Enterobacterial sRNA STnc410: a 158-nucleotide sequence from Citrobacter koseri. NCBI's taxonomy places the organism under Bacteria, Pseudomonadati, Pseudomonadota, Citrobacter, Citrobacter koseri. The sequence is in the family's curated seed alignment. The base pairs follow the family's consensus structure, which was predicted with CMfinder.

RNA sequence: AAGAGAAAACGCUCAACGCGGGGUUUUCACCGCUUGUUAAUGGGAUAUUUUCGUUCAUCGCCCUGCCUUUUGUCUUCAGAAAAGUCAGACUUACCUUUCAUUAAAGGCUUAGGUUAAUGUUUUUGCUAUUUUUUUGACCCAUGAAUAAAGAUGAGACA
Numbered sequence: 001a002a003g004a005g006a007a008a009a010c011g012c013u014c015a016a017c018g019c020g021g022g023g024u025u026u027u028c029a030c031c032g033c034u035u036g037u038u039a040a041u042g043g044g045a046u047a048u049u050u051u052c053g054u055u056c057a058u059c060g061c062c063c064u065g066c067c068u069u070u071u072g073u074c075u076u077c078a079g080a081a082a083a084g085u086c087a088g089a090c091u092u093a094c095c096u097u098u099c100a101u102u103a104a105a106g107g108c109u110u111a112g113g114u115u116a117a118u119g120u121u122u123u124u125g126c127u128a129u130u131u132u133u134u135u136g137a138c139c140c141a142u143g144a145a146u147a148a149a150g151a152u153g154a155g156a157c158a
Base pairs, nucleotide, nucleotide: 003028004027005026006025007024010021036073037072039070040069044066087097088096
Dot-bracket structure: ..(((((..(..........)..))))).......((.((...(.....................)..)).)).............((.......)).............................................................